[Rfam]
RNA sequence: AACUUUAAACUGCCGAAUUCCGGACGAUGCGCCGGAAGCGGGGGAACCAGCGCGGACGGCCGCUCGAGCAGCUGCCGUCCGCAGGGGUGAAUGCCGCCGGGGACAUGCCCCGGCGGUUAGGGCGGCCGUCACGCCCGAAUCCGUCAGCUAACCUCGCAGGCUUCAUGACAGGACUC
Numbered sequence: 001a002a003c004u005u006u007a008a009a010c011u012g013c014c015g016a017a018u019u020c021c022g023g024a025c026g027a028u029g030c031g032c033c034g035g036a037a038g039c040g041g042g043g044g045a046a047c048c049a050g051c052g053c054g055g056a057c058g059g060c061c062g063c064u065c066g067a068g069c070a071g072c073u074g075c076c077g078u079c080c081g082c083a084g085g086g087g088u089g090a091a092u093g094c095c096g097c098c099g100g101g102g103a104c105a106u107g108c109c110c111c112g113g114c115g116g117u118u119a120g121g122g123c124g125g126c127c128g129u130c131a132c133g134c135c136c137g138a139a140u141c142c143g144u145c146a147g148c149u150a151a152c153c154u155c156g157c158a159g160g161c162u163u164c165a166u167g168a169c170a171g172g173a174c175u176c
Stems, first nucleotide, its partner, number of pairs: 012161003018037006038157006048084001085142003093117010120136004
The record is a 176-nucleotide sequence from Paenibacillus albicereus, which matches "c-di-AMP riboswitch aptamer (ydaO/yuaA leader)" in Rfam.